[Rfam]
A member of the RNA family "Necrovirus cap-independent translation element" from Alphanecrovirus oleae, 82 nucleotides long. A reference for the family is Nicholson et al. (2013), "Tombusvirus Y-shaped translational enhancer forms a complex with eIF4F and can be functionally replaced by heterologous translational enhancers", J Virol. It is one of the family's seed sequences. Rfam classes the family as a cis-regulatory element.
Nucleotides: 082
Stems, first nucleotide, its partner, number of pairs: 004078002007075006014064002019031004039060006
Number, partner (000 for none) and nucleotide at each position: 001000g002000c003000g004078g005077u006000a007075a008074g009073c010072a011071a012070g013000a014064c015063g016000g017000a018000u019031c020030c021029u022028g023000g024000g025000a026000a027000a028022c029021a030020g031019g032000u033000u034000u035000a036000a037000c038000g039060g040059g041058c042057u043056g044055g045000g046000g047000g048000u049000g050000g051000u052000g053000c054000c055044c056043c057042g058041g059040c060039c061000g062000u063015c064014g065000c066000a067000u068000c069000a070012c071011u072010u073009g074008c075007u076000g077005a078004u079000a080000c081000a082000a